RNA sequence: GGUGAUAAAUUGUGACGUGUAAUAGACACUACGGACCCGGGGGCAGUACCCGGCGGCUCCACCAUUUCAGGCGAUUUGCUGUGUGCAGGACGCUUUUGCUGAUGGGGCCGAACCAGGAUCGACGGGUGUUCAAAGGCGUUAUUUUUACCCGGCCUGAGUAUGCCGUGAUUGCUCAAAACCUAUAAGUGCAAACGAUAACGAAGCACUCGCUAUUGCUGCCUAA
Numbered sequence: 001g002g003u004g005a006u007a008a009a010u011u012g013u014g015a016c017g018u019g020u021a022a023u024a025g026a027c028a029c030u031a032c033g034g035a036c037c038c039g040g041g042g043g044c045a046g047u048a049c050c051c052g053g054c055g056g057c058u059c060c061a062c063c064a065u066u067u068c069a070g071g072c073g074a075u076u077u078g079c080u081g082u083g084u085g086c087a088g089g090a091c092g093c094u095u096u097u098g099c100u101g102a103u104g105g106g107g108c109c110g111a112a113c114c115a116g117g118a119u120c121g122a123c124g125g126g127u128g129u130u131c132a133a134a135g136g137c138g139u140u141a142u143u144u145u146u147a148c149c150c151g152g153c154c155u156g157a158g159u160a161u162g163c164c165g166u167g168a169u170u171g172c173u174c175a176a177a178a179c180c181u182a183u184a185a186g187u188g189c190a191a192a193c194g195a196u197a198a199c200g201a202a203g204c205a206c207u208c209g210c211u212a213u214u215g216c217u218g219c220c221u222a223a
Stems, first nucleotide, its partner, number of pairs: 001149005015139004027128003032124002037053005054110007150165004

Rfam assigns this 223-nucleotide sequence from Sphingorhabdus sp. SMR4y to the family "permuted transfer-messenger RNA".
Pairs were carried over by alignment from the consensus structure, which is taken from published work.
Rfam classes the family as a non-coding RNA gene.
Bacterial tmRNA, also known as 10Sa RNA or SsrA, is named for its dual tRNA and mRNA-like properties.
The literature on the family includes a 1996 paper in RNA by Williams and Bartel, "Phylogenetic analysis of tmRNA secondary structure".